[Rfam]
Small nucleolar RNA R12: a 74-nucleotide sequence from Zingiber officinale. NCBI's taxonomy places the organism under Eukaryota, Liliopsida, Zingiberales, Zingiberaceae, Zingiber. Rfam's curators write: snoR12 is a C/D box small nucleolar RNA, which acts as a methylation guide for 25S ribosomal RNA in plants. snoR12 has been alternatively named snoZ44 in Arabidopsis and snoZ131 in rice. The literature on the family includes a 2003 paper in Nucleic Acids Res by Chen et al., "The high diversity of snoRNAs in plants: identification and comparative study of 120 snoRNA genes from Oryza sativa".

RNA sequence: UUUUGGAUGAUGAUAAAAAUCAAUAAGAUUCCUUUGAUUUCAAUGAAAUUACAACUAACUACUUUUGCACAUAA
Numbered sequence: 001u002u003u004u005g006g007a008u009g010a011u012g013a014u015a016a017a018a019a020u021c022a023a024u025a026a027g028a029u030u031c032c033u034u035u036g037a038u039u040u041c042a043a044u045g046a047a048a049u050u051a052c053a054a055c056u057a058a059c060u061a062c063u064u065u066u067g068c069a070c071a072u073a074a
Base pairs, nucleotide, nucleotide: 001074002073004071005070